ZMP/ZTP riboswitch aptamer (pfl RNA motif): an 89-nucleotide RNA from Streptomyces sp. UH6. It scores 49 bits against the family's covariance model. The source organism's lineage runs through Bacteria, Bacillati, Kitasatosporales, Streptomycetaceae and Streptomyces. Gene Ontology terms of the family: one-carbon metabolic process and regulation of purine nucleotide biosynthetic process. For this family Rfam cites "Recognition of the bacterial alarmone ZMP through long-distance association of two RNA subdomains" (Jones and Ferre-D'Amare, Nat Struct Mol Biol, 2015).
[Rfam]
RNA sequence: AGGGAGGGCCGUGACUGGCGCGCUGGGAUGGGACGGACCAUCGGGGAGCGGCCCGGAGAGAACACGUGCCGUGCGCCUGGGCCACACCG
Numbered sequence: 001a002g003g004g005a006g007g008g009c010c011g012u013g014a015c016u017g018g019c020g021c022g023c024u025g026g027g028a029u030g031g032g033a034c035g036g037a038c039c040a041u042c043g044g045g046g047a048g049c050g051g052c053c054c055g056g057a058g059a060g061a062a063c064a065c066g067u068g069c070c071g072u073g074c075g076c077c078u079g080g081g082c083c084a085c086a087c088c089g
Base pairs, nucleotide, nucleotide: 006054007053008052009051010050011049012048015045016044017077018076019075020074021073028041029040030039031038068082069081070080